[Rfam]
RNA sequence: CUCACGAAAAGGCAAAGCCUGAAGUGUACAGGCUGCGCAAAGUCACGGACUCCUACAUUUAAUAGGAGUAGCCGGACUACCGAA
Numbered sequence: 001c002u003c004a005c006g007a008a009a010a011g012g013c014a015a016a017g018c019c020u021g022a023a024g025u026g027u028a029c030a031g032g033c034u035g036c037g038c039a040a041a042g043u044c045a046c047g048g049a050c051u052c053c054u055a056c057a058u059u060u061a062a063u064a065g066g067a068g069u070a071g072c073c074g075g076a077c078u079a080c081c082g083a084a
Base pairs, nucleotide, nucleotide: 012038013037017033018032019031020030021029041078042077043076044075046074047073048072049069050068051067052066053065054064055063
The family of this 84-nucleotide RNA sequence from Amphritea balenae is "c-di-GMP-I riboswitch aptamer". Taxonomically the source falls in Amphritea (Bacteria, Pseudomonadati, Gammaproteobacteria, Oceanospirillaceae). GEMM was predicted in a large-scale screen for bacterial structured RNA regulatory elements. Pairs were carried over by alignment from the consensus structure, which is taken from published work.